Shown here is a 114-nucleotide RNA from Paenibacillus arenilitoris, a member of the family "epsC RNA". The match comes from Rfam's covariance-model search (115 bits). NCBI's taxonomy places the organism under Bacteria, Bacillati, Caryophanales, Paenibacillaceae, Paenibacillus.
RNA sequence: CGGUAAUGUCUCCUCACCGUUAUCAACGGAGGCACUCGGCCAUGCUGUGGGUUUCGAAUGGGACCUUAGACGCAAGUCGUCAAGAGUGUGGCGUGAGGGCGGGUUUGAUGCCCA
Numbered sequence: 001c002g003g004u005a006a007u008g009u010c011u012c013c014u015c016a017c018c019g020u021u022a023u024c025a026a027c028g029g030a031g032g033c034a035c036u037c038g039g040c041c042a043u044g045c046u047g048u049g050g051g052u053u054u055c056g057a058a059u060g061g062g063a064c065c066u067u068a069g070a071c072g073c074a075a076g077u078c079g080u081c082a083a084g085a086g087u088g089u090g091g092c093g094u095g096a097g098g099g100c101g102g103g104u105u106u107g108a109u110g111c112c113c114a
Base pairs, nucleotide, nucleotide: 001019002018003017004016007034008033009032010031011030012029013028035097036096037095038094039092040091041090042089043088044087045086046085049066050065051064052063053062054061055060069081070080071079072078101113102112103111104110